[Rfam]
RNA sequence: AACCAUUUGUCCCGCGUCCCUCGGCGUUUUAAAAAUCGGGACUUUUUUUUUAAAACGCCGAGGGACGCGGGACAAAUGGUUAA
Numbered sequence: 001a002a003c004c005a006u007u008u009g010u011c012c013c014g015c016g017u018c019c020c021u022c023g024g025c026g027u028u029u030u031a032a033a034a035a036u037c038g039g040g041a042c043u044u045u046u047u048u049u050u051u052a053a054a055a056c057g058c059c060g061a062g063g064g065a066c067g068c069g070g071g072a073c074a075a076a077u078g079g080u081u082a083a
Base pairs, nucleotide, nucleotide: 001081002080003079004078005077006076007075008074009073010072011071012070013069014068015067016066017065018064019063020062021061022060023059024058025057026056027055028054029053030052031051032050033049034048035047
Dot-bracket structure: (((((((((((((((((((((((((((((((((((...........)))))))))))))))))))))))))))))))))))..